[Rfam]
The record is a 134-nucleotide RNA from Dromaius novaehollandiae, which matches "Small nucleolar RNA SNORA13" in Rfam. Clan: SNORA13 clan. Lineage of the source: Eukaryota > Chordata > Craniata > Teleostomi > Dromaius. Rfam's curators write: ACA13 is a member of the H/ACA class of snoRNA that guide the sites of modification of uridines to pseudouridines. Pairs were carried over by alignment from the consensus structure, which was predicted with CMfinder. Rfam links the family to the GO terms nucleolus and RNA processing.
RNA sequence: UGCCUUUGUGUUGCCCAUUCAUUCACUUCCAGAAUGAAUGUGGUGUCAAAAAAGGCAAACAACAAUUCUUGCUAAAACUGUUUUAAGGAGUUGGUUUAUUUACCUUUCUCCUUCCUGGUUUUGCAAGGACAGAA
Numbered sequence: 001u002g003c004c005u006u007u008g009u010g011u012u013g014c015c016c017a018u019u020c021a022u023u024c025a026c027u028u029c030c031a032g033a034a035u036g037a038a039u040g041u042g043g044u045g046u047c048a049a050a051a052a053a054g055g056c057a058a059a060c061a062a063c064a065a066u067u068c069u070u071g072c073u074a075a076a077a078c079u080g081u082u083u084u085a086a087g088g089a090g091u092u093g094g095u096u097u098a099u100u101u102a103c104c105u106u107u108c109u110c111c112u113u114c115c116u117g118g119u120u121u122u123g124c125a126a127g128g129a130c131a132g133a134a
Base pairs, nucleotide, nucleotide: 002056003055004054005053006052007051009048010047012045013044014043015042016040017039018038019037020036021035022034023033068127069126070125071124072123074122075121076120077119078118086113087112088111089109090108093104094103